[Rfam]
RNA: SAM (S-adenosyl methionine) riboswitch aptamer
Organism: Microbacterium thalassium
RNA sequence: GUUCACGAGCUGCGGCUGUCGGUACCUGGCCGGCCGCACGGCAACCCGAGUCCCAUCGACUUCCGGGUGCCCCAGGGGAAGAACGGGCGUGAUGCCACCCGGCGUCCGCAAGGUUCGAUG
Numbered sequence: 001g002u003u004c005a006c007g008a009g010c011u012g013c014g015g016c017u018g019u020c021g022g023u024a025c026c027u028g029g030c031c032g033g034c035c036g037c038a039c040g041g042c043a044a045c046c047c048g049a050g051u052c053c054c055a056u057c058g059a060c061u062u063c064c065g066g067g068u069g070c071c072c073c074a075g076g077g078g079a080a081g082a083a084c085g086g087g088c089g090u091g092a093u094g095c096c097a098c099c100c101g102g103c104g105u106c107c108g109c110a111a112g113g114u115u116c117g118a119u120g
Stems, first nucleotide, its partner, number of pairs: 001084004009039001011038006021031002040071003045067003049062002087109003091106006